Rfam assigns this 104-nucleotide sequence from Menidia menidia to the family "Vault RNA". The literature on the family includes a 2009 paper in Mol Biol Evol by Stadler et al., "Evolution of Vault RNAs". Rfam 15.1 lists 2,873 matches to the family in 431 species. The match comes from Rfam's covariance-model search (62 bits). This family of RNAs are found as part of the enigmatic vault ribonucleoprotein complex.
RNA sequence: GCACUGGCGUAGCUCAGCGGUUACUUCUCUCAACAAUUCUCCUGUAGAAUACGCUGAUUCCUCCCGUUCGCGGGAUCGAACCACGGGCGCUGUCCAGUGCUUUU
Numbered sequence: 001g002c003a004c005u006g007g008c009g010u011a012g013c014u015c016a017g018c019g020g021u022u023a024c025u026u027c028u029c030u031c032a033a034c035a036a037u038u039c040u041c042c043u044g045u046a047g048a049a050u051a052c053g054c055u056g057a058u059u060c061c062u063c064c065c066g067u068u069c070g071c072g073g074g075a076u077c078g079a080a081c082c083a084c085g086g087g088c089g090c091u092g093u094c095c096a097g098u099g100c101u102u103u104u
Stems, first nucleotide, its partner, number of pairs: 002099006012088004017084001019082002025080003